[Rfam]
RNA sequence: UAGACAGUUCCAUGCUUCCUUGCAUUCGAUAGUAAAUCUUUUUCGCAAGAAGAAAAUAAAUCAACAUAUGGAAUGUAAAGAAGUAUGGAGCAAUCUG
Numbered sequence: 001u002a003g004a005c006a007g008u009u010c011c012a013u014g015c016u017u018c019c020u021u022g023c024a025u026u027c028g029a030u031a032g033u034a035a036a037u038c039u040u041u042u043u044c045g046c047a048a049g050a051a052g053a054a055a056a057u058a059a060a061u062c063a064a065c066a067u068a069u070g071g072a073a074u075g076u077a078a079a080g081a082a083g084u085a086u087g088g089a090g091c092a093a094u095c096u097g
Base pairs, nucleotide, nucleotide: 007091008090009089010088011087012086013085014084015083016082017081018080020078021077022076023075024074025073027071029069030068031067
RNA: mir-1 microRNA precursor family